[Rfam]
RNA sequence: UUCGCUAAACCUCCAAGGCCUUUCAUAAGACCUAGUGAACAAUUUUUGGGGACCCUAUCUUUUUAAGGUAGGGUU
Numbered sequence: 001u002u003c004g005c006u007a008a009a010c011c012u013c014c015a016a017g018g019c020c021u022u023u024c025a026u027a028a029g030a031c032c033u034a035g036u037g038a039a040c041a042a043u044u045u046u047u048g049g050g051g052a053c054c055c056u057a058u059c060u061u062u063u064u065a066a067g068g069u070a071g072g073g074u075u
Base pairs, nucleotide, nucleotide: 016033017032018031020029021028022027052074053073054072055071056070057069058068059067060066

The family of this 75-nucleotide RNA sequence from Caenorhabditis elegans is "SmY spliceosomal RNA". The family's consensus secondary structure is taken from published work. The literature on the family includes a 1996 paper in RNA by Maroney et al., "Direct analysis of nematode cis- and trans-spliceosomes: a functional role for U5 snRNA in spliced leader addition trans-splicing and the identification of novel Sm snRNPs". It is annotated as a spliceosomal small nuclear RNA. Lineage of the source: Eukaryota > Bilateria > Ecdysozoa > Rhabditomorpha > Caenorhabditis.